[Rfam]
RNA sequence: CCUCCAUUUCUUGGCAUACAUGUAGUUGUUCGUACUCAUGUGUGUAAUGUUCGGAGGAACAAUAAGACAGCGCUAUGUCUUCGGUGCCGGUAUGUAAUCUGUCAUUUGCCGGUUCUAUCCUCAAUCGCUGUUACACUC
Numbered sequence: 001c002c003u004c005c006a007u008u009u010c011u012u013g014g015c016a017u018a019c020a021u022g023u024a025g026u027u028g029u030u031c032g033u034a035c036u037c038a039u040g041u042g043u044g045u046a047a048u049g050u051u052c053g054g055a056g057g058a059a060c061a062a063u064a065a066g067a068c069a070g071c072g073c074u075a076u077g078u079c080u081u082c083g084g085u086g087c088c089g090g091u092a093u094g095u096a097a098u099c100u101g102u103c104a105u106u107u108g109c110c111g112g113u114u115c116u117a118u119c120c121u122c123a124a125u126c127g128c129u130g131u132u133a134c135a136c137u138c
Stems, first nucleotide, its partner, number of pairs: 001057005015044006022037001024036003068130005087112006